[Rfam]
Nucleotides: 104
Stems, first nucleotide, its partner, number of pairs: 014055003018052004025046005064103004073086004
Number, partner (000 for none) and nucleotide at each position: 001000u002000g003000a004000u005000a006000g007000c008000u009000a010000u011000g012000a013000a014055g015054c016053g017000u018052g019051a020050g021049g022000u023000u024000g025046c026045u027044g028043c029042u030000u031000u032000c033000a034000u035000c036000c037000a038000g039000u040000u041000a042029a043028g044027c045026a046025g047000g048000u049021u050020u051019u052018c053016c054015g055014u056000g057000g058000a059000g060000c061000g062000a063000a064103u065102g066101u067100c068000u069000a070000g071000a072000g073086a074085c075084c076083a077000c078000u079000a080000a081000u082000g083076u084075g085074g086073u087000c088000a089000a090000a091000c092000a093000a094000a095000c096000u097000g098000a099000c100067g101066a102065c103064a104000a

This 104-nucleotide RNA sequence belongs to the Rfam family "S10-Clostridia ribosomal protein leader". Rfam classes the family as a cis-regulatory leader. A reference for the family is Eckert and Weinberg (2020), "Discovery of 20 novel ribosomal leader candidates in bacteria and archaea", BMC Microbiol. Rfam's curators put it in the seed alignment.